[Rfam]
RNA sequence: UCUUGUUACUAAGUACUAGUGCCGCAGGAGUAAUUUAUACAUCUCCUGCUGCUUAAGUGCUUAUCAAUGAGG
Dot-bracket structure: (((((((..((((((((.(....(((((((............)))))))....).))))))))..)))))))
Numbered sequence: 001u002c003u004u005g006u007u008a009c010u011a012a013g014u015a016c017u018a019g020u021g022c023c024g025c026a027g028g029a030g031u032a033a034u035u036u037a038u039a040c041a042u043c044u045c046c047u048g049c050u051g052c053u054u055a056a057g058u059g060c061u062u063a064u065c066a067a068u069g070a071g072g
Stems, first nucleotide, its partner, number of pairs: 001072007010063008019054001024049007
Rfam assigns this 72-nucleotide RNA sequence from Papilio xuthus to the family "mir-252 microRNA precursor family". The match comes from Rfam's covariance-model search (72 bits). Rfam links the family to the GO terms RISC complex and miRNA-mediated post-transcriptional gene silencing. NCBI's taxonomy places the organism under Eukaryota, Panarthropoda, Insecta, Lepidoptera, Papilio.